[Rfam]
This 210-nucleotide RNA from Streptomyces sp. PT12 belongs to the Rfam family "Actinobacteria sRNA Ms_IGR-5". By type it is a small RNA. Taxonomically the source falls in Streptomyces (Bacteria, Actinomycetota, Kitasatosporales, Streptomycetaceae). A reference for the family is Li et al. (2013), "Identification of small RNAs in Mycobacterium smegmatis using heterologous Hfq", RNA.
RNA sequence: ACACGAGAAGGGAGGUGGUUCGGCAGAUGCAUGACAACCGGACGCGUGAGGUGACUGCGGCCUAGCGGUCGCUGUCCCACGACACGUGGCGCCGGCACCGCCGGCCAAUCCCGAGCAGUCACCCGAUCCGCGAGCCGUCGGCGACGUCCGGCCGGCUCCCCGCCCGGCGCACCGCGCCGCACGGGGACCAAGGCUCGCGGGUCGCUGCUU
Numbered sequence: 001a002c003a004c005g006a007g008a009a010g011g012g013a014g015g016u017g018g019u020u021c022g023g024c025a026g027a028u029g030c031a032u033g034a035c036a037a038c039c040g041g042a043c044g045c046g047u048g049a050g051g052u053g054a055c056u057g058c059g060g061c062c063u064a065g066c067g068g069u070c071g072c073u074g075u076c077c078c079a080c081g082a083c084a085c086g087u088g089g090c091g092c093c094g095g096c097a098c099c100g101c102c103g104g105c106c107a108a109u110c111c112c113g114a115g116c117a118g119u120c121a122c123c124c125g126a127u128c129c130g131c132g133a134g135c136c137g138u139c140g141g142c143g144a145c146g147u148c149c150g151g152c153c154g155g156c157u158c159c160c161c162g163c164c165c166g167g168c169g170c171a172c173c174g175c176g177c178c179g180c181a182c183g184g185g186g187a188c189c190a191a192g193g194c195u196c197g198c199g200g201g202u203c204g205c206u207g208c209u210u
Stems, first nucleotide, its partner, number of pairs: 015058005060106001062104002065101002068096004073091003124204013137156006